[Rfam]
RNA: DUF3800-IX RNA
RNA sequence: GGCCCAACCCUGACUAGUCGCCUUUAUGGUGUGCGUCUCCCUUUGUGGGAGUAGGGGUUGGGUUUCUU
Numbered sequence: 001g002g003c004c005c006a007a008c009c010c011u012g013a014c015u016a017g018u019c020g021c022c023u024u025u026a027u028g029g030u031g032u033g034c035g036u037c038u039c040c041c042u043u044u045g046u047g048g049g050a051g052u053a054g055g056g057g058u059u060g061g062g063u064u065u066c067u068u
Stems, first nucleotide, its partner, number of pairs: 001064011017034002019031004037051005